[Rfam]
RNA: Small nucleolar RNA SNORA63
Organism: Galemys pyrenaicus
RNA sequence: AAGCAGGAUUUAGACUACAAUAUAGCUGUGAGUGCUGUGUUGUCGUUCCCCCUGCUCAAAUCAAAGUGUUUCUUAACUAUACCUGUCUGCUUUACUACUGUAGCAGCCAGGGACGCUUGGUCUCAUACAU
Numbered sequence: 001a002a003g004c005a006g007g008a009u010u011u012a013g014a015c016u017a018c019a020a021u022a023u024a025g026c027u028g029u030g031a032g033u034g035c036u037g038u039g040u041u042g043u044c045g046u047u048c049c050c051c052c053u054g055c056u057c058a059a060a061u062c063a064a065a066g067u068g069u070u071u072c073u074u075a076a077c078u079a080u081a082c083c084u085g086u087c088u089g090c091u092u093u094a095c096u097a098c099u100g101u102a103g104c105a106g107c108c109a110g111g112g113a114c115g116c117u118u119g120g121u122c123u124c125a126u127a128c129a130u
Stems, first nucleotide, its partner, number of pairs: 003055005017043010082111004087106004